Small nucleolar RNA SNORA70: a 131-nucleotide sequence from Colobus angolensis. The family's consensus secondary structure was predicted with PFOLD. For this family Rfam cites "Pseudouridine in RNA: what, where, how, and why" (Charette and Gray, IUBMB Life, 2000). It is annotated as an H/ACA-box small nucleolar RNA. snoRNA U70 seems to be exclusive to mammals and is a member of the H/ACA class of snoRNA which contain H (ANANNA) and ACA box motifs. H/ACA box snoRNAs are involved in the conversion of uridines to pseudouridines (5-ribosyluracil) a constituent of structural RNAs (transfer, ribosomal, small nuclear, and small nucleolar). NCBI's taxonomy places the organism under Eukaryota, Chordata, Tetrapoda, Boreoeutheria, Colobus angolensis.
RNA sequence: AUAAUAAUAAUUCCGAGUGAGUUCCUUUCCUCAUGGGGGCCCAGUGUGCAAUGGCUGCAAACAGCAGCUUCGCUGGUAGUGAUGCAGCCUGUUUGUUGUAUGGGUUGCUCUGAGGGACCUUGGAGACGGUA
Numbered sequence: 001a002u003a004a005u006a007a008u009a010a011u012u013c014c015g016a017g018u019g020a021g022u023u024c025c026u027u028u029c030c031u032c033a034u035g036g037g038g039g040c041c042c043a044g045u046g047u048g049c050a051a052u053g054g055c056u057g058c059a060a061a062c063a064g065c066a067g068c069u070u071c072g073c074u075g076g077u078a079g080u081g082a083u084g085c086a087g088c089c090u091g092u093u094u095g096u097u098g099u100a101u102g103g104g105u106u107g108c109u110c111u112g113a114g115g116g117a118c119c120u121u122g123g124a125g126a127c128g129g130u131a
Stems, first nucleotide, its partner, number of pairs: 001047001016045001018043002022039004075119003085107006